Notes:
Group II catalytic intron D1-D4-1: a 93-nucleotide sequence from Erysipelothrix larvae. The source organism's lineage runs through Bacteria, Bacillota, Erysipelotrichales, Erysipelotrichaceae and Erysipelothrix. Group II introns are found in rRNA, tRNA and mRNA of organelles in fungi, plants and protists, and also in mRNA in bacteria.

[Rfam]
RNA sequence: AAACUCUUAUAGUGAUAUAGGACUGGAACGUGAGAAGUCAGCCGAAGCCAUAGUAAUGAAGACGUCUAUCGAAAGGUAGAAGGAGUGAAGGGC
Numbered sequence: 001a002a003a004c005u006c007u008u009a010u011a012g013u014g015a016u017a018u019a020g021g022a023c024u025g026g027a028a029c030g031u032g033a034g035a036a037g038u039c040a041g042c043c044g045a046a047g048c049c050a051u052a053g054u055a056a057u058g059a060a061g062a063c064g065u066c067u068a069u070c071g072a073a074a075g076g077u078a079g080a081a082g083g084a085g086u087g088a089a090g091g092g093c
Base pairs, nucleotide, nucleotide: 002024005022006021007020008019009018010017011016038045039044047093048092049091056086057085065080066079067078